[Rfam]
RNA sequence: UCGACUCGUGUGGGAGAACCGGUAACACCCGGUGCCGAAGGCGCAACCGCCCCGGAAACGCUCAGGCCACAGGACCACGGGGGUCUU
Numbered sequence: 001u002c003g004a005c006u007c008g009u010g011u012g013g014g015a016g017a018a019c020c021g022g023u024a025a026c027a028c029c030c031g032g033u034g035c036c037g038a039a040g041g042c043g044c045a046a047c048c049g050c051c052c053c054g055g056a057a058a059c060g061c062u063c064a065g066g067c068c069a070c071a072g073g074a075c076c077a078c079g080g081g082g083g084u085c086u087u
Stems, first nucleotide, its partner, number of pairs: 006082002009079005019032004034067003037063002041061003047055002
RNA: Glycine riboswitch aptamer
Organism: Loktanella sp. 3ANDIMAR09